[Rfam]
RNA sequence: AGCAAAAUGAUGAAGUCAAAAAAUGUCUGAAACUGAUGAAGAUAUAUUGAUUCAUAAGGUCUUCAAAGUUCUCUGAUUGCU
Numbered sequence: 001a002g003c004a005a006a007a008u009g010a011u012g013a014a015g016u017c018a019a020a021a022a023a024u025g026u027c028u029g030a031a032a033c034u035g036a037u038g039a040a041g042a043u044a045u046a047u048u049g050a051u052u053c054a055u056a057a058g059g060u061c062u063u064c065a066a067a068g069u070u071c072u073c074u075g076a077u078u079g080c081u
Stems, first nucleotide, its partner, number of pairs: 001081005
RNA: Small nucleolar RNA R160